[Rfam]
RNA sequence: AAGUCCCCACAACGGCUUCCUGGCGUGGGGAAAGACAUAUUCAAUGGAGCA
Numbered sequence: 001a002a003g004u005c006c007c008c009a010c011a012a013c014g015g016c017u018u019c020c021u022g023g024c025g026u027g028g029g030g031a032a033a034g035a036c037a038u039a040u041u042c043a044a045u046g047g048a049g050c051a
Stems, first nucleotide, its partner, number of pairs: 004031007013022002015050003019047002